Notes: The family of this 67-nucleotide sequence from Paraburkholderia steynii is "int-alpA RNA". By type it is a small RNA. From the family's description: Acidobacteria (1 example), Planctomycetes (1 example), Proteobacteria. Taxonomically the source falls in Paraburkholderia (Bacteria, Pseudomonadati, Pseudomonadota, Burkholderiales).

Nucleotides: 067
Base pairs, nucleotide, nucleotide: 001055002054003053004052005051006050007049008048011022012021013020014019028045029044030043031042032041036066037065
Number, partner (000 for none) and nucleotide at each position: 001055g002054c003053c004052g005051c006050g007049c008048c009000u010000a011022g012021c013020u014019c015000g016000a017000c018000g019014g020013g021012g022011c023000g024000a025000a026000g027000g028045c029044c030043g031042g032041g033000u034000a035000g036066c037065c038000c039000u040000a041032c042031c043030c044029g045028g046000u047000u048008g049007g050006c051005g052004c053003g054002g055001c056000u057000c058000c059000u060000a061000a062000a063000u064000a065037g066036g067000g